RNA sequence: GGCCUCCCUUUGUGGGGUGAUCGAUUGCGGGGCCCCCAGAUUGAAUGCCCCGCAGAGGGAGGCC
Dot-bracket structure: (((((((((((((((((((.((((((..((....))..)))))).)))))))))))))))))))

mir-9242 microRNA precursor family: a 64-nucleotide sequence from Myotis brandtii. The family has 2 seed sequences and 940 matches in Rfam 15.1. A search with the family's covariance model found it, with a score of 65 bits. Lineage of the source: Eukaryota > Metazoa > Eumetazoa > Euteleostomi > Myotis.